Description
Rfam assigns this 187-nucleotide sequence from Anopheles sinensis to the family "drz-agam-2-2 ribozyme".
RNA sequence: UAUAAGAAUUGUUCUGUACGGAGUUGGAUCCGACGCCUCUUGAAGGCUACUACAGACUCUCCUUCUCAACUCCUAAUCAAUACGUCCGCGACGUACUGAACGGUAACUUGUCGCCUAAAUAUCCAAGCUUGGGUACACGGGGAAACCCAUCUUGGGCGGGUUGGGCGGCAAGGCCGAAUUGAGAGGG
Numbered sequence: 001u002a003u004a005a006g007a008a009u010u011g012u013u014c015u016g017u018a019c020g021g022a023g024u025u026g027g028a029u030c031c032g033a034c035g036c037c038u039c040u041u042g043a044a045g046g047c048u049a050c051u052a053c054a055g056a057c058u059c060u061c062c063u064u065c066u067c068a069a070c071u072c073c074u075a076a077u078c079a080a081u082a083c084g085u086c087c088g089c090g091a092c093g094u095a096c097u098g099a100a101c102g103g104u105a106a107c108u109u110g111u112c113g114c115c116u117a118a119a120u121a122u123c124c125a126a127g128c129u130u131g132g133g134u135a136c137a138c139g140g141g142g143a144a145a146c147c148c149a150u151c152u153u154g155g156g157c158g159g160g161u162u163g164g165g166c167g168g169c170a171a172g173g174c175c176g177a178a179u180u181g182a183g184a185g186g187g
Base pairs, nucleotide, nucleotide: 010100012098015095021067022066023065026062027061028060031055071187072186073185074184077182078181079180080179081178082094083093084092086103087102107172108171109170110169111168112167113166114165115164116163121162123160124159130149131148132147133146134145151156

NCBI's taxonomy places the organism under Eukaryota, Protostomia, Allotriocarida, Culicomorpha, Myzorhynchus. On this family, see Webb et al., Science 2009: "Widespread occurrence of self-cleaving ribozymes". A search with the family's covariance model found it, with a score of 149 bits.